[Rfam]
RNA sequence: AGACAUCUAAAUAGACUUACCUGUAUAACCUCUAGAAUAUGGCUUGAGGGUCUCUACCAGGAACCAUAAAAAUCCUGAUUACAGAAAAUGAAUUUGUUCAU
Numbered sequence: 001a002g003a004c005a006u007c008u009a010a011a012u013a014g015a016c017u018u019a020c021c022u023g024u025a026u027a028a029c030c031u032c033u034a035g036a037a038u039a040u041g042g043c044u045u046g047a048g049g050g051u052c053u054c055u056a057c058c059a060g061g062a063a064c065c066a067u068a069a070a071a072a073u074c075c076u077g078a079u080u081a082c083a084g085a086a087a088a089u090g091a092a093u094u095u096g097u098u099c100a101u
Base pairs, nucleotide, nucleotide: 018087021084022083023082024081025080029049030048031047032046034044035043058077059076060075061074062073

A member of the RNA family "Purine riboswitch aptamer" from Halalkalibacter suaedae, 101 nucleotides long. The base pairs follow the family's consensus structure, which is taken from published work. Lineage of the source: Bacteria > Bacillati > Bacilli > Caryophanales > Halalkalibacter. Rfam's curators write: Riboswitches are metabolite binding domains within certain messenger RNAs that serve as precision sensors for their corresponding targets.